RNA sequence: CAGUGGGUGAAAGCCCCACCCGGCAACAUGCUCCAGCCGGAAGCAACCGGGGCAGGCAUGGAGGUGACGAAAUGUCUGAAGCCCCCGGAUGACGGUCACAUAGGUGACCGUGCGAGUGUGCAGGCCGCAACGUGA
Number, nucleotide and partner (000 for none) at each position: 001c000002a000003g000004u000005g000006g000007g000008u000009g000010a000011a000012a000013g000014c000015c000016c000017c000018a000019c000020c040021c039022g038023g037024c036025a000026a000027c000028a000029u000030g000031c000032u000033c000034c000035a000036g024037c023038c022039g021040g020041a000042a000043g000044c000045a000046a000047c000048c087049g086050g085051g084052g083053c078054a077055g076056g075057c074058a073059u000060g000061g000062a000063g068064g000065u000066g000067a000068c063069g000070a000071a000072a000073u058074g057075u056076c055077u054078g053079a000080a000081g000082c000083c052084c051085c050086c049087g048088g000089a000090u000091g000092a000093c000094g109095g108096u107097c106098a105099c104100a000101u000102a000103g000104g099105u098106g097107a096108c095109c094110g000111u000112g128113c127114g126115a000116g000117u000118g000119u000120g000121c000122a000123g000124g000125c000126c114127g113128c112129a000130a000131c000132g000133u000134g000135a000
RNA: Group II catalytic intron D1-D4-4
Organism: Sphingomonas sanxanigenens